Group I catalytic intron: a 328-nucleotide sequence from Fusarium sp. AF-6. A search with the family's covariance model found it, with a score of 62 bits.
RNA sequence: UUUACAAUUUUAAUAAAUUGCCGUGGUAGAUAGUAAUAUCUAUCUUAUAAUAUAACUAUAUGCGGGAAACUCCUAAAGUCUUUUUAUAGAUUAUUGUGAAAACUUUUUAAGUAAAGCGUACACAAAACAUAAAAAUUAAAGAGAAUAGAGUCCUAUAGCCUGUACAGGUGUAGGAUGAAAAUGGACAAUCCGCAGGAAACCGAGAAUAAUAUAAAUUAAUUAAGGGAUCCUCAGAGACUACACGUUAUACCCCAUAUUCAAUAAUGUCUAAUAAAACAUCUAUUGAAUAAGGGUGAAGAUAUAGUCCGGUUAUAGCUGAAAAGUUAUA
Numbered sequence: 001u002u003u004a005c006a007a008u009u010u011u012a013a014u015a016a017a018u019u020g021c022c023g024u025g026g027u028a029g030a031u032a033g034u035a036a037u038a039u040c041u042a043u044c045u046u047a048u049a050a051u052a053u054a055a056c057u058a059u060a061u062g063c064g065g066g067a068a069a070c071u072c073c074u075a076a077a078g079u080c081u082u083u084u085u086a087u088a089g090a091u092u093a094u095u096g097u098g099a100a101a102a103c104u105u106u107u108u109a110a111g112u113a114a115a116g117c118g119u120a121c122a123c124a125a126a127a128c129a130u131a132a133a134a135a136u137u138a139a140a141g142a143g144a145a146u147a148g149a150g151u152c153c154u155a156u157a158g159c160c161u162g163u164a165c166a167g168g169u170g171u172a173g174g175a176u177g178a179a180a181a182u183g184g185a186c187a188a189u190c191c192g193c194a195g196g197a198a199a200c201c202g203a204g205a206a207u208a209a210u211a212u213a214a215a216u217u218a219a220u221u222a223a224g225g226g227a228u229c230c231u232c233a234g235a236g237a238c239u240a241c242a243c244g245u246u247a248u249a250c251c252c253c254a255u256a257u258u259c260a261a262u263a264a265u266g267u268c269u270a271a272u273a274a275a276a277c278a279u280c281u282a283u284u285g286a287a288u289a290a291g292g293g294u295g296a297a298g299a300u301a302u303a304g305u306c307c308g309g310u311u312a313u314a315g316c317u318g319a320a321a322a323g324u325u326a327u328a
Base pairs, nucleotide, nucleotide: 005026007024008023011020012019013018030039031038032037051249052248053247054246056244061194062193063192064191065190066189071185072184073183195230196229200225201224205220207218209217234307236306237305238304239303240302251293252292253291255289256288257287258286259285313326314325315324316323317322

The family's consensus secondary structure is taken from published work. About the family: Group I catalytic introns are large self-splicing ribozymes.